[Rfam]
RNA sequence: CGGUUAAAAAGUCUGUAGUCAAGUGAGGAUGUGUAUGAGUAUGAAGGUGAGUGAACUAGAGUUGAAUAAGCUUGUAUGUAUGAGGAGAGCAACGGAGGGGGUGCACUGGAUAGCUGGGCGAGAGGUGAAAUGUGAAGACCCUGGCUGGACGAACGGAGGCGAAGGCUGUGUGCCAUGACGAAUGUGAUGAUCAAGGACGAAGGCCAGAGGAUCGAAAUCGAUUAGAUACCGUUUUAGUUCUGGCAGUAAACGAUGCUGACGGGAUGACAUGUAUGUGUGUUAUGCAAGAGAAAUUGAGUAUGUGAGCUCUGGGGAUAGUAUGUUCGCAAGGGUGAAACUUAAAGAGAU
Numbered sequence: 001c002g003g004u005u006a007a008a009a010a011g012u013c014u015g016u017a018g019u020c021a022a023g024u025g026a027g028g029a030u031g032u033g034u035a036u037g038a039g040u041a042u043g044a045a046g047g048u049g050a051g052u053g054a055a056c057u058a059g060a061g062u063u064g065a066a067u068a069a070g071c072u073u074g075u076a077u078g079u080a081u082g083a084g085g086a087g088a089g090c091a092a093c094g095g096a097g098g099g100g101g102u103g104c105a106c107u108g109g110a111u112a113g114c115u116g117g118g119c120g121a122g123a124g125g126u127g128a129a130a131u132g133u134g135a136a137g138a139c140c141c142u143g144g145c146u147g148g149a150c151g152a153a154c155g156g157a158g159g160c161g162a163a164g165g166c167u168g169u170g171u172g173c174c175a176u177g178a179c180g181a182a183u184g185u186g187a188u189g190a191u192c193a194a195g196g197a198c199g200a201a202g203g204c205c206a207g208a209g210g211a212u213c214g215a216a217a218u219c220g221a222u223u224a225g226a227u228a229c230c231g232u233u234u235u236a237g238u239u240c241u242g243g244c245a246g247u248a249a250a251c252g253a254u255g256c257u258g259a260c261g262g263g264a265u266g267a268c269a270u271g272u273a274u275g276u277g278u279g280u281u282a283u284g285c286a287a288g289a290g291a292a293a294u295u296g297a298g299u300a301u302g303u304g305a306g307c308u309c310u311g312g313g314g315a316u317a318g319u320a321u322g323u324u325c326g327c328a329a330g331g332g333u334g335a336a337a338c339u340u341a342a343a344g345a346g347a348u
Stems, first nucleotide, its partner, number of pairs: 001311003011198004018191003089185003093180002097176001100174007107151002111147008122133001124131001156167001159166002203244006213237001217233001219231002255307003259299002262285001264283008288295002313340002322333004
The family of this 348-nucleotide part of an RNA from Ordospora colligata is "Microsporidia small subunit ribosomal RNA". Clan: SSU clan. Pairs were carried over by alignment from the consensus structure, which is taken from published work. Rfam links the family to the GO terms ribosome and structural constituent of ribosome.